[Rfam]
RNA sequence: CUUCAGGCGUACUAGGGUUCCGGUUCCGUCGAUGGUAAUCGAUGGGAUGUCUGGUCCGAGAGUAUUCCGGCCUUGCGCAAUCGGCGGGGCUCCACGGAGGGAUAAAAGCCCGGGAGAA
Numbered sequence: 001c002u003u004c005a006g007g008c009g010u011a012c013u014a015g016g017g018u019u020c021c022g023g024u025u026c027c028g029u030c031g032a033u034g035g036u037a038a039u040c041g042a043u044g045g046g047a048u049g050u051c052u053g054g055u056c057c058g059a060g061a062g063u064a065u066u067c068c069g070g071c072c073u074u075g076c077g078c079a080a081u082c083g084g085c086g087g088g089g090c091u092c093c094a095c096g097g098a099g100g101g102a103u104a105a106a107a108g109c110c111c112g113g114g115a116g117a118a
Base pairs, nucleotide, nucleotide: 007067009065010064011063012062015057016056020054021053022051023048024047025046026045027044028043029042030041031040032039033038069091070090071089072088073087074086075085076084093113095116099111100110101109